[Rfam]
RNA sequence: AGCUGCAAAGAUAAAAACACAGAGCAUGUCUGAGACAUGCGGAGCCGGUUGGUAGUCCGGCCGGAAGCAGCAAGCCUGCUUCUAAGUAGCCCUCCUCCUUGGUCGUCCGUUCUUUGUUCAUAAAAU
Numbered sequence: 001a002g003c004u005g006c007a008a009a010g011a012u013a014a015a016a017a018c019a020c021a022g023a024g025c026a027u028g029u030c031u032g033a034g035a036c037a038u039g040c041g042g043a044g045c046c047g048g049u050u051g052g053u054a055g056u057c058c059g060g061c062c063g064g065a066a067g068c069a070g071c072a073a074g075c076c077u078g079c080u081u082c083u084a085a086g087u088a089g090c091c092c093u094c095c096u097c098c099u100u101g102g103u104c105g106u107c108c109g110u111u112c113u114u115u116g117u118u119c120a121u122a123a124a125a126u
Stems, first nucleotide, its partner, number of pairs: 005117007044061005063083008094102002